[Rfam]
RNA: t44 RNA
Organism: Methylomagnum ishizawai
RNA sequence: UGCUAUUUUUGGCAAUAACACACACAUAUCGUCACGUCCGGCAGGGUGCCCGCCUCGCGGUUUUAGACGCGGGAACGGGUUGUCGGUUCGGGAUAUGUGGAGGCUCAAC
Numbered sequence: 001u002g003c004u005a006u007u008u009u010u011g012g013c014a015a016u017a018a019c020a021c022a023c024a025c026a027u028a029u030c031g032u033c034a035c036g037u038c039c040g041g042c043a044g045g046g047u048g049c050c051c052g053c054c055u056c057g058c059g060g061u062u063u064u065a066g067a068c069g070c071g072g073g074a075a076c077g078g079g080u081u082g083u084c085g086g087u088u089c090g091g092g093a094u095a096u097g098u099g100g101a102g103g104c105u106c107a108a109c
Stems, first nucleotide, its partner, number of pairs: 023099008035090002039086001040084004048080005